[Rfam]
RNA sequence: AUAUACACUGAGUGGCCAGAUUAUUUUGACCUCUGAACGCAAAAUAAUCUGGCUACUCAGGGUAUAU
Numbered sequence: 001a002u003a004u005a006c007a008c009u010g011a012g013u014g015g016c017c018a019g020a021u022u023a024u025u026u027u028g029a030c031c032u033c034u035g036a037a038c039g040c041a042a043a044a045u046a047a048u049c050u051g052g053c054u055a056c057u058c059a060g061g062g063u064a065u066a067u
Stems, first nucleotide, its partner, number of pairs: 004064003008060010019049010